[Rfam]
RNA sequence: CUACUGUGCCAGUGGUGGAUGGCUCGGCUCGAGUGCCGACGAAGGACGUGCCAAGCUGCGAAAAGCUGCAGGGAGCCGCACGGAGGCUUAGAACUGCAGAUCUCCUAAUGGGAAUCCCUUUACAAUUGCUUCGCGCAAUGGGGAACGUCCAAAACUGAAACAUCUCAGUAAGGACAGGAAAAGAAACCGAACGGGAUGUCGUUAGUAACGGCGAGUGAAGACGACACAGUCCAAACCGAAGGCUUCGGCCAAUGUGGUGUUCGGACUUACCAUACGCGAUCAACGACUCACGAGAACUCUCCUGGAACGGAGGGCGAUACAGGGUGACAGCCCCGUAUCGUGAGUGGGCGAUCGUAGGUUUGUUCCAGAGUAUCGGGGGUUGGAAAUCCCUCGAGAAGACGGCAGGCAUCGACUGCCAAGACUAAAUACAACUCGAGACCGAUAGCGGACAAGUAGCGUGAGCGAACGCUGAAAAGUACCCUGAAAAAGGGGUUGAAAUAAGGCCUGAAAUCAUGUGGCGAUGGAGC
Number, nucleotide and partner (000 for none) at each position: 001c000002u000003a000004c000005u000006g000007u520008g519009c518010c517011a516012g514013u513014g512015g511016u000017g000018g000019a000020u000021g505022g469023c468024u000025c000026g440027g439028c437029u436030c435031g434032a433033g432034u430035g429036c000037c000038g000039a000040c000041g000042a000043a106044g105045g104046a103047c060048g059049u058050g000051c000052c000053a000054a000055g000056c000057u000058g049059c048060g047061a000062a000063a000064a000065g000066c099067u098068g097069c096070a095071g094072g000073g000074a000075g087076c086077c085078g000079c000080a000081c000082g000083g000084a000085g077086g076087c075088u000089u000090a000091g000092a000093a000094c071095u070096g069097c068098a067099g066100a000101u000102c000103u046104c045105c044106u043107a000108a000109u000110g119111g118112g117113a000114a000115u000116c000117c112118c111119u110120u000121u000122a000123c000124a000125a139126u138127u137128g136129c135130u000131u000132c000133g000134c000135g129136c128137a127138a126139u125140g000141g000142g000143g000144a000145a000146c177147g175148u174149c173150c172151a000152a000153a000154a000155c000156u000157g164158a163159a000160a000161c000162a000163u158164c157165u000166c000167a000168g000169u000170a000171a000172g150173g149174a148175c147176a000177g146178g000179a000180a000181a000182a000183g000184a000185a000186a000187c194188c193189g000190a000191a000192c000193g188194g187195g000196a000197u000198g225199u224200c223201g222202u221203u000204a000205g000206u000207a000208a216209c215210g000211g000212c000213g000214a000215g209216u208217g000218a000219a000220g000221a202222c201223g200224a199225c198226a000227c000228a423229g422230u421231c420232c000233a000234a000235a000236c257237c256238g255239a000240a000241g000242g000243c000244u000245u000246c000247g000248g000249c000250c000251a000252a000253u000254g000255u238256g237257g236258u000259g000260u000261u000262c000263g000264g000265a000266c000267u000268u000269a359270c358271c000272a000273u000274a000275c000276g000277c354278g353279a352280u351281c000282a000283a000284c000285g000286a000287c000288u000289c000290a000291c340292g339293a338294g000295a000296a000297c313298u000299c312300u311301c310302c309303u000304g000305g000306a000307a000308c000309g302310g301311a300312g299313g297314g000315c000316g320317a000318u000319a000320c316321a000322g334323g333324g332325u000326g000327a000328c000329a000330g000331c000332c324333c323334c322335g000336u000337a000338u293339c292340g291341u000342g000343a000344g000345u000346g000347g000348g000349c000350g000351a280352u279353c278354g277355u000356a000357g000358g270359u269360u000361u000362g000363u000364u000365c000366c000367a000368g000369a000370g000371u000372a000373u394374c393375g392376g391377g390378g389379g388380u000381u000382g000383g000384a000385a000386a000387u000388c379389c378390c377391u376392c375393g374394a373395g000396a000397a000398g000399a000400c000401g417402g416403c415404a414405g413406g000407c000408a000409u000410c000411g000412a000413c405414u404415g403416c402417c401418a000419a000420g231421a230422c229423u228424a000425a000426a000427u000428a000429c035430a034431a000432c033433u032434c031435g030436a029437g028438a000439c027440c026441g000442a000443u000444a000445g000446c000447g000448g000449a000450c000451a000452a000453g000454u000455a000456g463457c462458g000459u000460g000461a000462g457463c456464g000465a000466a000467c000468g023469c022470u000471g000472a000473a000474a000475a000476g000477u000478a000479c000480c000481c000482u000483g000484a000485a000486a000487a000488a000489g000490g000491g000492g000493u000494u000495g000496a000497a000498a000499u000500a000501a000502g000503g000504c000505c021506u000507g000508a000509a000510a000511u015512c014513a013514u012515g000516u011517g010518g009519c008520g007521a000522u000523g000524g000525a000526g000527c000